[Rfam]
RNA: GP20-b RNA
RNA sequence: GCCCGGCUGCGGCAGGGCUGAAACAGCCGCACAGACGGUGACGGCCACCACCUUAAAACGCCUA
Numbered sequence: 001g002c003c004c005g006g007c008u009g010c011g012g013c014a015g016g017g018c019u020g021a022a023a024c025a026g027c028c029g030c031a032c033a034g035a036c037g038g039u040g041a042c043g044g045c046c047a048c049c050a051c052c053u054u055a056a057a058a059c060g061c062c063u064a
Base pairs, nucleotide, nucleotide: 001018002017003016004015009030010029011028012027013026037052038051039050040049